The record is a 78-nucleotide RNA sequence from Anisakis simplex, which matches "mir-5360 microRNA precursor family" in Rfam. The match comes from Rfam's covariance-model search (79 bits). Gene Ontology terms of the family: RISC complex and miRNA-mediated post-transcriptional gene silencing. The family's consensus secondary structure was predicted with RNAalifold. Taxonomically the source falls in Anisakis simplex complex (Eukaryota, Chromadorea, Anisakidae, Anisakis).
RNA sequence: UGCCCAAAGCACGAAUCGUCGAAUCGGAUGUCUUUGUAAUUGAACAGAAAUUCGAAUCGACGUUCGACCUGUGGUCAC
Dot-bracket structure: .(.(((.((..(((((.(((((.((((((.(((............))).)))))).))))))))))..)).))).)..